[Rfam]
RNA sequence: AUCUUAUCAAGAGCAGGUGGAGGGACAAGCCCAAUGACACCCGGCAACCGACCUAUUUUUUAGGCACGGUGCUAAAUCUUGCAGUUACGGCUGAGAGAUAAGAG
Numbered sequence: 001a002u003c004u005u006a007u008c009a010a011g012a013g014c015a016g017g018u019g020g021a022g023g024g025a026c027a028a029g030c031c032c033a034a035u036g037a038c039a040c041c042c043g044g045c046a047a048c049c050g051a052c053c054u055a056u057u058u059u060u061u062a063g064g065c066a067c068g069g070u071g072c073u074a075a076a077u078c079u080u081g082c083a084g085u086u087a088c089g090g091c092u093g094a095g096a097g098a099u100a101a102g103a104g
Stems, first nucleotide, its partner, number of pairs: 002103007013042001016041003022032003026081004043073004048069002052064003077096001082093004
RNA: SAM riboswitch aptamer (S box leader)
Organism: Domibacillus mangrovi